Glycine riboswitch aptamer: a 95-nucleotide sequence from Actinokineospora terrae.

Nucleotides: 095
Base pairs, nucleotide, nucleotide: 002090003089005087006086007085008084009083016034017033018032019031020030021029036075037074038073040070043069045067049062050061
Number, partner (000 for none) and nucleotide at each position: 001000g002090c003089c004000a005087c006086u007085c008084u009083g010000g011000a012000a013000a014000g015000c016034a017033g018032a019031c020030g021029c022000g023000a024000u025000c026000u027000c028000g029021g030020c031019g032018u033017c034016u035000c036075a037074c038073c039000c040070a041000c042000g043069g044000u045067g046000c047000a048000a049062g050061c051000c052000g053000c054000g055000c056000u057000c058000g059000c060000g061050g062049c063000g064000a065000a066000g067045c068000u069043c070040u071000c072000a073038g074037g075036u076000g077000c078000c079000a080000u081000g082000a083009c084008a085007g086006a087005g088000g089003g090002g091000g092000a093000g094000u095000u